[Rfam]
RNA sequence: GGCCUGUUGGUGAAGCGGUUAACACACACGGUUUUCAUCCGUGGACACACGGGUUCGAACCCCGUACAGGCUA
Numbered sequence: 001g002g003c004c005u006g007u008u009g010g011u012g013a014a015g016c017g018g019u020u021a022a023c024a025c026a027c028a029c030g031g032u033u034u035u036c037a038u039c040c041g042u043g044g045a046c047a048c049a050c051g052g053g054u055u056c057g058a059a060c061c062c063c064g065u066a067c068a069g070g071c072u073a
Stems, first nucleotide, its partner, number of pairs: 001072007010025003027043005049065005
RNA: tRNA
Organism: Mycoplasma capricolum